[Rfam]
RNA sequence: GUAACGGUCACCGCAAGGUUUCUGGUGCUGACACCAGACAGACUUCCGCGGCUCGCUUGUCGAGCCGCACCCGGCAAAGCCGGAUUUGCUAACCCGCCGGUAUCGACACCGGC
Numbered sequence: 001g002u003a004a005c006g007g008u009c010a011c012c013g014c015a016a017g018g019u020u021u022c023u024g025g026u027g028c029u030g031a032c033a034c035c036a037g038a039c040a041g042a043c044u045u046c047c048g049c050g051g052c053u054c055g056c057u058u059g060u061c062g063a064g065c066c067g068c069a070c071c072c073g074g075c076a077a078a079g080c081c082g083g084a085u086u087u088g089c090u091a092a093c094c095c096g097c098c099g100g101u102a103u104c105g106a107c108a109c110c111g112g113c
Stems, first nucleotide, its partner, number of pairs: 010019003021038006048068008071083004096113006